[Rfam]
RNA sequence: UGACGGGGACCCGCACAAGUAGUGGAGCAUGUGGUUUAAUUCGAAGAUACGCGCAGAACCUUACCAACACUUGACAUGUUCGUCGCAACUUUAAGAGAUUAAAGUUUUCGGUUCGGCCGGACGAAACACAGGUGCUGCAUGGCUGUCGUCAGCUCGUGUCGUGAGAUGUUGGGUUAAGUCCCGCAACGAGCGCAACCCUCACUUUUAGUUGCCAUCAUUAAGUUGGGCACUCUGAAAGAACUGCCAGUGAUAAGCUGGAGGAAGGUGGGGAUGACGUCAAGUCCUCAUGGCCCUUACGUGUUGGGCUACACACGUGCUACAAUGGUAUCUACAACAGGAAGCGAAACAGCGAUGUUAAGCAAAUCCUUAAAAGAUACCUCAGUUCGGAUUGCACUCUGCAACUCGAGUGCAUGAAGCUGGAAUUACUAGUAAUCGUGGAUCAGCGUGCCACGGUGAAUGCGUUCCCGGGUCUUGUACACACCGCCCGUCACACCAUGGGAGUUGGUUCUACCUUAAGGCAAGGUUUAAUACCCUUGACCACGGUAUAGUCAGCGACUGGGGUGAAGUCGUAACAAGG
Numbered sequence: 001u002g003a004c005g006g007g008g009a010c011c012c013g014c015a016c017a018a019g020u021a022g023u024g025g026a027g028c029a030u031g032u033g034g035u036u037u038a039a040u041u042c043g044a045a046g047a048u049a050c051g052c053g054c055a056g057a058a059c060c061u062u063a064c065c066a067a068c069a070c071u072u073g074a075c076a077u078g079u080u081c082g083u084c085g086c087a088a089c090u091u092u093a094a095g096a097g098a099u100u101a102a103a104g105u106u107u108u109c110g111g112u113u114c115g116g117c118c119g120g121a122c123g124a125a126a127c128a129c130a131g132g133u134g135c136u137g138c139a140u141g142g143c144u145g146u147c148g149u150c151a152g153c154u155c156g157u158g159u160c161g162u163g164a165g166a167u168g169u170u171g172g173g174u175u176a177a178g179u180c181c182c183g184c185a186a187c188g189a190g191c192g193c194a195a196c197c198c199u200c201a202c203u204u205u206u207a208g209u210u211g212c213c214a215u216c217a218u219u220a221a222g223u224u225g226g227g228c229a230c231u232c233u234g235a236a237a238g239a240a241c242u243g244c245c246a247g248u249g250a251u252a253a254g255c256u257g258g259a260g261g262a263a264g265g266u267g268g269g270g271a272u273g274a275c276g277u278c279a280a281g282u283c284c285u286c287a288u289g290g291c292c293c294u295u296a297c298g299u300g301u302u303g304g305g306c307u308a309c310a311c312a313c314g315u316g317c318u319a320c321a322a323u324g325g326u327a328u329c330u331a332c333a334a335c336a337g338g339a340a341g342c343g344a345a346a347c348a349g350c351g352a353u354g355u356u357a358a359g360c361a362a363a364u365c366c367u368u369a370a371a372a373g374a375u376a377c378c379u380c381a382g383u384u385c386g387g388a389u390u391g392c393a394c395u396c397u398g399c400a401a402c403u404c405g406a407g408u409g410c411a412u413g414a415a416g417c418u419g420g421a422a423u424u425a426c427u428a429g430u431a432a433u434c435g436u437g438g439a440u441c442a443g444c445g446u447g448c449c450a451c452g453g454u455g456a457a458u459g460c461g462u463u464c465c466c467g468g469g470u471c472u473u474g475u476a477c478a479c480a481c482c483g484c485c486c487g488u489c490a491c492a493c494c495a496u497g498g499g500a501g502u503u504g505g506u507u508c509u510a511c512c513u514u515a516a517g518g519c520a521a522g523g524u525u526u527a528a529u530a531c532c533c534u535u536g537a538c539c540a541c542g543g544u545a546u547a548g549u550c551a552g553c554g555a556c557u558g559g560g561g562u563g564a565a566g567u568c569g570u571a572a573c574a575a576g577g
Stems, first nucleotide, its partner, number of pairs: 001478002003475003007472007015462002019426005024320001026318008034309002040055001042053002064304007077128002079125005088105007108120004131293002134291004140287002142282003145278001147276002152191006158167003170183004197270004202238007212227002216225002241261002244258005324378007336367003341360002346355003385416001390411007432454007481576001483573001486569002491563004496558003501553007509545004517538001519536004523531002
RNA: Bacterial small subunit ribosomal RNA, nucleotides 862 to 1438
Organism: uncultured SAR11 cluster bacterium HF0010_09O16